Shown here is a 76-nucleotide sequence from Apostichopus japonicus, a member of the family "mir-252 microRNA precursor family". Rfam 15.1 lists 422 matches to the family in 306 species.
RNA sequence: GCUCUAUUCUAAGUACUAGUGCCGCAGGUGUUUUAUUCGCUACUGGUACCUGCAGUUCUAGUGCUUAACAUGGGGU
Numbered sequence: 001g002c003u004c005u006a007u008u009c010u011a012a013g014u015a016c017u018a019g020u021g022c023c024g025c026a027g028g029u030g031u032u033u034u035a036u037u038c039g040c041u042a043c044u045g046g047u048a049c050c051u052g053c054a055g056u057u058c059u060a061g062u063g064c065u066u067a068a069c070a071u072g073g074g075g076u
Base pairs, nucleotide, nucleotide: 001076002075003074004073005072006071007070010067011066012065013064014063015062016061017060018059019058024053025052026051027050028049029048030047
Pairs were carried over by alignment from the consensus structure, which was predicted with RNAalifold. On this family, see Ruby et al., Cell 2006: "Large-scale sequencing reveals 21U-RNAs and additional microRNAs and endogenous siRNAs in C. elegans".